Background: The record is a 101-nucleotide RNA sequence from Paenibacillus apis, which matches "Purine riboswitch aptamer" in Rfam. Lineage of the source: Bacteria > Bacillota > Caryophanales > Paenibacillaceae > Paenibacillus.
RNA sequence: CAAAUAACUUAAUAUGCUUUUCGUAUAAUUCCGGGAAUGGGCCCGGAAGUCUCUACGAGGUCACCGUAAAUGAUCUGGCUACGAAAGGAAGAAGUGCUGGA
Numbered sequence: 001c002a003a004a005u006a007a008c009u010u011a012a013u014a015u016g017c018u019u020u021u022c023g024u025a026u027a028a029u030u031c032c033g034g035g036a037a038u039g040g041g042c043c044c045g046g047a048a049g050u051c052u053c054u055a056c057g058a059g060g061u062c063a064c065c066g067u068a069a070a071u072g073a074u075c076u077g078g079c080u081a082c083g084a085a086a087g088g089a090a091g092a093a094g095u096g097c098u099g100g101a
Stems, first nucleotide, its partner, number of pairs: 018087008029048007058076006